[Rfam]
RNA sequence: UUUUGGAGAUGACGAAUUUUAUCAGAGGCUGUUUCUGAGGUGAGCCAAGAGCUCUCCAGUGCUGCAAAAGAACUGAUUUGCUGUUCUGAUCAAAAG
Numbered sequence: 001u002u003u004u005g006g007a008g009a010u011g012a013c014g015a016a017u018u019u020u021a022u023c024a025g026a027g028g029c030u031g032u033u034u035c036u037g038a039g040g041u042g043a044g045c046c047a048a049g050a051g052c053u054c055u056c057c058a059g060u061g062c063u064g065c066a067a068a069a070g071a072a073c074u075g076a077u078u079u080g081c082u083g084u085u086c087u088g089a090u091c092a093a094a095a096g
Stems, first nucleotide, its partner, number of pairs: 003094002006091002042054004064081005
RNA: Small nucleolar RNA Z119
Organism: Setaria italica